The family of this 102-nucleotide RNA from Ectobacillus ponti is "Purine riboswitch aptamer".
It scores 86 bits against the family's covariance model.
Riboswitches are metabolite binding domains within certain messenger RNAs that serve as precision sensors for their corresponding targets.
RNA sequence: AUUAGAAAAUAGAAGCGUCCUCAUAUAAUAGCGGAGAUAUGGUCCGCAAGUUUCUACCUGGUAACCGUAAAGUACCGGACUAUGAGGAAAGGGAACUCGGUC
Dot-bracket structure: .................((((((((...(.(((((.......))))).)........((((((.........))))))..))))))))..............